[Rfam]
RNA sequence: UAUGAGAUGACAUGCUUCUUUAUAUCCCCAUAGGGAUUAGGAUGCUAUGGAAUGUAAGGAAGUGUGUGGUUUCAGG
Dot-bracket structure: ......((.((((((((((((((((..(((((.............))))).)))))))))))))))).))......
Numbered sequence: 001u002a003u004g005a006g007a008u009g010a011c012a013u014g015c016u017u018c019u020u021u022a023u024a025u026c027c028c029c030a031u032a033g034g035g036a037u038u039a040g041g042a043u044g045c046u047a048u049g050g051a052a053u054g055u056a057a058g059g060a061a062g063u064g065u066g067u068g069g070u071u072u073c074a075g076g
Stems, first nucleotide, its partner, number of pairs: 007070002010067016028050005